[Rfam]
About this RNA: mir-8834 microRNA precursor family: a 124-nucleotide sequence from Vulpes vulpes. Gene Ontology terms of the family: miRNA-mediated post-transcriptional gene silencing and RISC complex. The match comes from Rfam's covariance-model search (40 bits). Taxonomically the source falls in Vulpes (Eukaryota, Eutheria, Boreoeutheria, Caniformia).
RNA sequence: AGGAGGAACAUCCACAAUGGCUAGGCAGCUCUGGAAACCUGGAGUCAGCCCCCGCAGUAACUCCUCCGGGGCUCUCCGUCUGCCGGAGCUCUCCGUCUGCAGGGCUUGGAGGCUCCGGGCAGGG
Numbered sequence: 001a002g003g004a005g006g007a008a009c010a011u012c013c014a015c016a017a018u019g020g021c022u023a024g025g026c027a028g029c030u031c032u033g034g035a036a037a038c039c040u041g042g043a044g045u046c047a048g049c050c051c052c053c054g055c056a057g058u059a060a061c062u063c064c065u066c067c068g069g070g071g072c073u074c075u076c077c078g079u080c081u082g083c084c085g086g087a088g089c090u091c092u093c094c095g096u097c098u099g100c101a102g103g104g105c106u107u108g109g110a111g112g113c114u115c116c117g118g119g120c121a122g123g124g
Stems, first nucleotide, its partner, number of pairs: 002116004009108002012104002019097003024092002027090008038078001041077004